[Rfam]
RNA sequence: UUGGUUUAAAUCAUUGCGGGUCUACAUUUUGAAAAUUGAACCUACAUGAAAUGGUGGGAUAUACAUUGAUUUCAUCUAA
Numbered sequence: 001u002u003g004g005u006u007u008a009a010a011u012c013a014u015u016g017c018g019g020g021u022c023u024a025c026a027u028u029u030u031g032a033a034a035a036u037u038g039a040a041c042c043u044a045c046a047u048g049a050a051a052u053g054g055u056g057g058g059a060u061a062u063a064c065a066u067u068g069a070u071u072u073c074a075u076c077u078a079a
Stems, first nucleotide, its partner, number of pairs: 001079004006074001008072006015065002018062001022057003025053007